[Rfam]
RNA sequence: CGCGGUCUUCGGUAGUGGCUGCCGGAAACGAUUCCGGCCGCUUCGAUCGAUGGCCGUA
Dot-bracket structure: .((((((.(((((...(((.(((((((....))))))).)))...))))).)))))).

This 58-nucleotide RNA from Mycolicibacterium phlei belongs to the Rfam family "Actino-pnp RNA". By type it is a cis-regulatory element. The base pairs follow the family's consensus structure, which is taken from published work.